[Rfam]
RNA sequence: CCAAAGGCUCUUUUUAGAGCCACCCACAGAUUUCAGAAAAAGAGC
Numbered sequence: 001c002c003a004a005a006g007g008c009u010c011u012u013u014u015u016a017g018a019g020c021c022a023c024c025c026a027c028a029g030a031u032u033u034c035a036g037a038a039a040a041a042g043a044g045c
Base pairs, nucleotide, nucleotide: 006021007020008019009018010017011016
Dot-bracket structure: .....((((((....))))))........................
Shown here is a 45-nucleotide sequence from Eulacestoma nigropectus, a member of the family "Histone 3' UTR stem-loop". The base pairs follow the family's consensus structure, which is taken from published work. About the family: The mRNAs of metazoan histone genes lack a poly-A tail. 3' end processing occurs at a site between a highly conserved stem-loop (modelled by this family) and a purine rich region around 20 nts downstream (the histone downstream element, or HDE). On this family, see Williams and Marzluff, Nucleic Acids Res 1995: "The sequence of the stem and flanking sequences at the 3' end of histone mRNA are critical determinants for the binding of the stem-loop binding protein". It is annotated as a cis-regulatory element.